The record is a 71-nucleotide RNA sequence from Halalkalibacterium halodurans, which matches "tRNA" in Rfam.
The family's RNA type in Rfam is transfer RNA.
Nucleotides: 071
Stems, first nucleotide, its partner, number of pairs: 001070007010024004026042005047063005
Number, partner (000 for none) and nucleotide at each position: 001070a002069g003068g004067g005066g006065c007064a008000u009000a010024g011023u012022u013021u014000a015000a016000c017000g018000g019000u020000a021013g022012a023011a024010c025000a026042g027041a028040g029039g030038u031000c032000u033000c034000c035000a036000a037000a038030a039029c040028c041027u042026c043000c044000g045000g046000u047063g048062u049061g050060g051059g052000u053000u054000c055000g056000a057000u058000u059051c060050c061049u062048a063047c064007u065006g066005c067004c068003c069002c070001u071000g
Lineage of the source: Bacteria > Bacillota > Bacilli > Caryophanales > Halalkalibacterium (ex Joshi et al. 2022). Rfam describes the family as follows. Transfer RNA (tRNA) molecules are approximately 80 nucleotides in length.